[Rfam]
RNA sequence: CGCUUUUUUGCCCAGUCAGAACUUGACCGCCGAUUCAAGUCCUAAAGGCCUUUGUCGAGCAGCAUCGCGACCCCUUUGGGGGCGAGCCGAUCUGCAAGGUCUUGCGGAUUGCCCCG
Numbered sequence: 001c002g003c004u005u006u007u008u009u010g011c012c013c014a015g016u017c018a019g020a021a022c023u024u025g026a027c028c029g030c031c032g033a034u035u036c037a038a039g040u041c042c043u044a045a046a047g048g049c050c051u052u053u054g055u056c057g058a059g060c061a062g063c064a065u066c067g068c069g070a071c072c073c074c075u076u077u078g079g080g081g082g083c084g085a086g087c088c089g090a091u092c093u094g095c096a097a098g099g100u101c102u103u104g105c106g107g108a109u110u111g112c113c114c115c116g
Stems, first nucleotide, its partner, number of pairs: 015031001017029001019027001077116005088111002091108007
ALIL pseudoknot: a 116-nucleotide RNA from Burkholderia sp. lig30. On this family, see Mazauric et al., J Biol Chem 2008: "Apical loop-internal loop RNA pseudoknots: a new type of stimulator of -1 translational frameshifting in bacteria". The source organism's lineage runs through Bacteria, Pseudomonadati, Pseudomonadota, Burkholderiaceae and Burkholderia.